Background
The family of this 65-nucleotide sequence from Callorhinchus milii is "mir-155 microRNA precursor family". Rfam 15.1 lists 647 matches to the family in 617 species. Pairs were carried over by alignment from the consensus structure, which was predicted with RNAalifold.
RNA sequence: GAUUUAAUGCUAAUUGUGAUAGGGGUUGUGAAUUUUGACCAGCUCCUACAUGUUAGCAUUAGCUC
Numbered sequence: 001g002a003u004u005u006a007a008u009g010c011u012a013a014u015u016g017u018g019a020u021a022g023g024g025g026u027u028g029u030g031a032a033u034u035u036u037g038a039c040c041a042g043c044u045c046c047u048a049c050a051u052g053u054u055a056g057c058a059u060u061a062g063c064u065c
Stems, first nucleotide, its partner, number of pairs: 004062011020048004025043003